[Rfam]
RNA sequence: CCUGAGGCAGCCCCUCCAGGACUGUCUAACUGAGAAUGAUGUUUCCAGAGGCACUCUCAGGCUCGUCAGCCCGGGAGGUGCUGCCCUUCC
Dot-bracket structure: ....(((((((.((((..((.(((.(.(.((((((.((.............)).))))))..).).))).))..)))).)))).)))...
Shown here is a 90-nucleotide RNA from Pteropus vampyrus, a member of the family "mir-1388 microRNA precursor family". Its family is annotated with RISC complex and miRNA-mediated post-transcriptional gene silencing in the Gene Ontology. Rfam 15.1 lists 600 matches to the family in 570 species. A search with the family's covariance model found it, with a score of 63 bits.